[Rfam]
RNA sequence: ACAAUUCUUCGGGGCAGGGUGAAAUUCCCUACCGGCGGUGAUAGUCCGCGACUGCAUCUUAUGGUGCACUGACUUGGUGAAAUUCCAAGACCGACAGUAAAGUCUGGAUGGUAGAAGAGUUAU
Number, nucleotide and partner (000 for none) at each position: 001a000002c000003a121004a120005u119006u118007c117008u116009u115010c114011g000012g000013g000014g000015c000016a000017g029018g028019g027020u000021g000022a000023a000024a000025u000026u000027c019028c018029c017030u000031a103032c102033c093034g092035g049036c048037g047038g046039u000040g000041a000042u000043a000044g091045u090046c038047c037048g036049c035050g000051a000052c000053u068054g067055c000056a000057u000058c000059u000060u000061a000062u000063g000064g000065u000066g000067c054068a053069c000070u000071g000072a000073c089074u088075u087076g086077g085078u000079g000080a000081a000082a000083u000084u000085c077086c076087a075088a074089g073090a045091c044092c034093g033094a000095c106096a105097g104098u000099a000100a000101a000102g032103u031104c097105u096106g095107g000108a000109u000110g000111g000112u000113a000114g010115a009116a008117g007118a006119g005120u004121u003122a000123u000
RNA: FMN riboswitch aptamer (RFN element)